[Rfam]
RNA sequence: CCAACAAGCCGGGCCCCGCUGACGACGCUGUGUCGUGAUGUCGGCUUGUUCCG
Dot-bracket structure: .....(((((((.........(((((.....)))))....)))))))......
A member of the RNA family "terC RNA" from Pseudoprimorskyibacter insulae, 53 nucleotides long. By type it is a cis-regulatory element. The organism belongs to Pseudoprimorskyibacter, within Bacteria.